[Rfam]
RNA sequence: CCUGCCGAAGUUUCCCUCAGGAUAGCAGAAACUCGUAUCAGUUUUAUGAGGUAAAGCGAAUGAUUAGCGGUACCGGGGAUGAAAUGUCCUUGACCGAUUCUCAAACUUUAAAUAUGUAAGAAGUCCUUGUUGCUUAAUUGAACGUGGACAUAUGAAUGAAGAGUUUCUAGUGGGCCAUUUUUGGUAAGCAGAACUGGCGAUGCGGGAUGAACCGAACGUGGAGUUAAGGUGCCGGAAUGUACGCUCAUCAGACACCACAAAAGGUGUUAGUUCAUCUAGACAGCCGGACGGUGGCCAUGGAAGUCGGAAUCCGCUAAGGAGUGUGUAACAACUCACCGGCCGAAUGAACUAGCCCUGAAAAUGGAUGGCGCUCAAGCGUAUUACCUAUACUCCACCGCCAGGGUUAAUAUGAUGCCCUGGCGAGUAGGCAGGCGUGGAGGUCAGUGACGAAGCCUAGGCAGUGAUGCUGGGUUGAACGGCCUCUAGUGCAGAU
Numbered sequence: 001c002c003u004g005c006c007g008a009a010g011u012u013u014c015c016c017u018c019a020g021g022a023u024a025g026c027a028g029a030a031a032c033u034c035g036u037a038u039c040a041g042u043u044u045u046a047u048g049a050g051g052u053a054a055a056g057c058g059a060a061u062g063a064u065u066a067g068c069g070g071u072a073c074c075g076g077g078g079a080u081g082a083a084a085u086g087u088c089c090u091u092g093a094c095c096g097a098u099u100c101u102c103a104a105a106c107u108u109u110a111a112a113u114a115u116g117u118a119a120g121a122a123g124u125c126c127u128u129g130u131u132g133c134u135u136a137a138u139u140g141a142a143c144g145u146g147g148a149c150a151u152a153u154g155a156a157u158g159a160a161g162a163g164u165u166u167c168u169a170g171u172g173g174g175c176c177a178u179u180u181u182u183g184g185u186a187a188g189c190a191g192a193a194c195u196g197g198c199g200a201u202g203c204g205g206g207a208u209g210a211a212c213c214g215a216a217c218g219u220g221g222a223g224u225u226a227a228g229g230u231g232c233c234g235g236a237a238u239g240u241a242c243g244c245u246c247a248u249c250a251g252a253c254a255c256c257a258c259a260a261a262a263g264g265u266g267u268u269a270g271u272u273c274a275u276c277u278a279g280a281c282a283g284c285c286g287g288a289c290g291g292u293g294g295c296c297a298u299g300g301a302a303g304u305c306g307g308a309a310u311c312c313g314c315u316a317a318g319g320a321g322u323g324u325g326u327a328a329c330a331a332c333u334c335a336c337c338g339g340c341c342g343a344a345u346g347a348a349c350u351a352g353c354c355c356u357g358a359a360a361a362u363g364g365a366u367g368g369c370g371c372u373c374a375a376g377c378g379u380a381u382u383a384c385c386u387a388u389a390c391u392c393c394a395c396c397g398c399c400a401g402g403g404u405u406a407a408u409a410u411g412a413u414g415c416c417c418u419g420g421c422g423a424g425u426a427g428g429c430a431g432g433c434g435u436g437g438a439g440g441u442c443a444g445u446g447a448c449g450a451a452g453c454c455u456a457g458g459c460a461g462u463g464a465u466g467c468u469g470g471g472u473u474g475a476a477c478g479g480c481c482u483c484u485a486g487u488g489c490a491g492a493u
Base pairs, nucleotide, nucleotide: 001432002431003430004429005428006427011024013022014021015020027168028167029166030165031164032163033162042121043120044119045118046117047116048115054109055107056106061103062102063101066098068096069095070094074092075091076090077089078088080086123149124148125147126146128144129143130142131141174198175197176196177195179193180192181191182190183189203214204213205212218395219394220393221392222391224389228385229384230383237382239381242378243377244376262356263355264354266353267352268351269350270349271348272347273346274345275344283340284339285338286337287336289313290312291311295307296306314318319334323332324331396422397421398420399419400418401417402416403415404414433488435485436484437483438482439481440480441479442478444477445476452472453471458467459466460465
Rfam assigns this 493-nucleotide part of an RNA from Hanseniaspora uvarum to the family "Eukaryotic large subunit ribosomal RNA". Its family is annotated with ribosome and structural constituent of ribosome in the Gene Ontology. Lineage of the source: Eukaryota > Saccharomycetes > Saccharomycodales > Saccharomycodaceae > Hanseniaspora.